[Rfam]
RNA sequence: CUCUGAAAAUGGCAAAACUACCGAAAGGUAGUGACGCAAAGUUACCGGUCUAAGGGGCACAGCCCUAUGACAGCGGAACCUCCAGA
Numbered sequence: 001c002u003c004u005g006a007a008a009a010u011g012g013c014a015a016a017a018c019u020a021c022c023g024a025a026a027g028g029u030a031g032u033g034a035c036g037c038a039a040a041g042u043u044a045c046c047g048g049u050c051u052a053a054g055g056g057g058c059a060c061a062g063c064c065c066u067a068u069g070a071c072a073g074c075g076g077a078a079c080c081u082c083c084a085g086a
Stems, first nucleotide, its partner, number of pairs: 012037002017032006041079003045076003048071003055065004
About this RNA: c-di-GMP-I riboswitch aptamer: an 86-nucleotide sequence from Candidatus Contendibacter odensensis. It scores 81 bits against the family's covariance model. NCBI's taxonomy places the organism under Bacteria, Pseudomonadota, Gammaproteobacteria, Candidatus Contendibacter, Candidatus Contendibacter odensensis.